[Rfam]
RNA sequence: ACCCGUGUUUGUAAGUGUUAUGGGUUGCGUUCGAGCUUAGCCUUGUUCAUUUUUUUACACAAUAGCUCUGUAAAAAAUUGCACACGGCUCUAUGAACAUCCCAUGAAACCGGGCUUACAGCGUGUGACGAAUAACCCAAAACGCCCCAAAAAUGGCCCCUCCGCACCACCUCAGGGCAA
Number, nucleotide and partner (000 for none) at each position: 001a000002c000003c000004c000005g000006u000007g000008u000009u000010u000011g000012u000013a000014a000015g000016u000017g000018u000019u000020a000021u000022g102023g101024g100025u000026u098027g097028c000029g000030u000031u000032c000033g000034a000035g090036c000037u000038u000039a000040g088041c087042c086043u084044u000045g083046u082047u000048c000049a000050u000051u077052u076053u075054u074055u073056u072057a071058c070059a000060c000061a000062a000063u000064a000065g000066c000067u000068c000069u000070g058071u057072a056073a055074a054075a053076a052077a051078u000079u000080g000081c000082a046083c045084a043085c000086g042087g041088c040089u000090c035091u000092a000093u000094g000095a000096a000097c027098a026099u000100c024101c023102c022103a000104u000105g000106a000107a000108a000109c000110c000111g000112g000113g000114c000115u000116u000117a000118c000119a000120g000121c000122g000123u000124g000125u000126g000127a000128c000129g000130a000131a000132u000133a000134a000135c000136c000137c000138a000139a000140a000141a000142c000143g000144c000145c000146c000147c000148a000149a000150a000151a000152a000153u000154g000155g000156c000157c000158c000159c000160u000161c000162c000163g177164c176165a000166c174167c000168a000169c000170c000171u000172c000173a000174g166175g000176g164177c163178a000179a000

Pseudomonas sRNA P1: a 179-nucleotide RNA from Pseudomonas knackmussii. On this family, see Livny et al., Nucleic Acids Res 2006: "Identification of 17 Pseudomonas aeruginosa sRNAs and prediction of sRNA-encoding genes in 10 diverse pathogens using the bioinformatic tool sRNAPredict2". The base pairs follow the family's consensus structure, which was predicted with RNAalifold. This small RNA (sRNA) was computationally identified in the genome of the opportunistic pathogen Pseudomonas aeruginosa and its expression verified by northern blot analysis. There appears to be two related copies of P1 sRNA in the P.aeruginosa PA01 genome and both copies appear to be located upstream of predicted glutamine synthetase genes. The organism belongs to Pseudomonas knackmussii, within Bacteria.